[Rfam]
This 208-nucleotide sequence from Nocardia mexicana belongs to the Rfam family "Actinobacteria sRNA Ms_IGR-5".
A search with the family's covariance model found it, with a score of 122 bits.
The source organism's lineage runs through Bacteria, Actinomycetota, Mycobacteriales, Nocardiaceae and Nocardia.
The base pairs follow the family's consensus structure.
RNA sequence: ACACGGGAAAGGAGGUGGUUCGACGAAUGGAUAUUCAAAGGACACGUGAGGUGGCUGCAAGCUAGGCGCCACCGCUGCAAACGGAUUCUCGUUCGCGCGAGUGCCGAGCUGAAUCCAAGGCAGCCACCCGGCCCCCGAGCCCCCGGUUUGUCCGACCGGGAUCGCGAGAGGUUCACACUUCCGCGAUAAGGCUCGGGGGUCGUUCCUU
Numbered sequence: 001a002c003a004c005g006g007g008a009a010a011g012g013a014g015g016u017g018g019u020u021c022g023a024c025g026a027a028u029g030g031a032u033a034u035u036c037a038a039a040g041g042a043c044a045c046g047u048g049a050g051g052u053g054g055c056u057g058c059a060a061g062c063u064a065g066g067c068g069c070c071a072c073c074g075c076u077g078c079a080a081a082c083g084g085a086u087u088c089u090c091g092u093u094c095g096c097g098c099g100a101g102u103g104c105c106g107a108g109c110u111g112a113a114u115c116c117a118a119g120g121c122a123g124c125c126a127c128c129c130g131g132c133c134c135c136c137g138a139g140c141c142c143c144c145g146g147u148u149u150g151u152c153c154g155a156c157c158g159g160g161a162u163c164g165c166g167a168g169a170g171g172u173u174c175a176c177a178c179u180u181c182c183g184c185g186a187u188a189a190g191g192c193u194c195g196g197g198g199g200u201c202g203u204u205c206c207u208u
Stems, first nucleotide, its partner, number of pairs: 015058005060110004065105002068102002073097003129202013142160006